L20-Deltaproteobacteria ribosomal protein leader: a 79-nucleotide RNA.
Rfam classes the family as a cis-regulatory leader.
Pairs were carried over by alignment from the consensus structure, which is taken from published work.
RNA sequence: GACCGAGAACUGAGGGGACAGGUCUCCUCCUUCAGAUCCGGCAGCGGCAAUGCCGCCAUAUCCAAGCACAACCAAGGAG
Numbered sequence: 001g002a003c004c005g006a007g008a009a010c011u012g013a014g015g016g017g018a019c020a021g022g023u024c025u026c027c028u029c030c031u032u033c034a035g036a037u038c039c040g041g042c043a044g045c046g047g048c049a050a051u052g053c054c055g056c057c058a059u060a061u062c063c064a065a066g067c068a069c070a071a072c073c074a075a076g077g078a079g
Stems, first nucleotide, its partner, number of pairs: 003041003007038002010035008